[Rfam]
The family of this 112-nucleotide sequence from a Desulfobulbaceae bacterium is "Group II catalytic intron D1-D4-2". NCBI's taxonomy places the organism under Bacteria, Pseudomonadati, Thermodesulfobacteriota, Desulfobulbales, Desulfobulbaceae. Rfam describes the family as follows. Group II introns are found in rRNA, tRNA and mRNA of organelles in fungi, plants and protists, and also in mRNA in bacteria. Pairs were carried over by alignment from the consensus structure. Gene Ontology term of the family: Group II intron splicing.
RNA sequence: GUAAGAAGUGGGCUGUCGGUAAAGAUGUUCAGGCGUAUUUACCAAACCGCCUUGUGGUGCUUGUAUAAAGAGUAUAGGUAUUGAGCGACAAGGUCAAGGCAUUAUGGGUCGU
Numbered sequence: 001g002u003a004a005g006a007a008g009u010g011g012g013c014u015g016u017c018g019g020u021a022a023a024g025a026u027g028u029u030c031a032g033g034c035g036u037a038u039u040u041a042c043c044a045a046a047c048c049g050c051c052u053u054g055u056g057g058u059g060c061u062u063g064u065a066u067a068a069a070g071a072g073u074a075u076a077g078g079u080a081u082u083g084a085g086c087g088a089c090a091a092g093g094u095c096a097a098g099g100c101a102u103u104a105u106g107g108g109u110c111g112u
Stems, first nucleotide, its partner, number of pairs: 001017001004014002018043006025036004050093006056082002059079003063075004103111001
Dot-bracket structure: (..((.......))..)((((((.((((....)))).))))))......((((((((.(((.((((.....)))).))).)).....)))))).........(.......).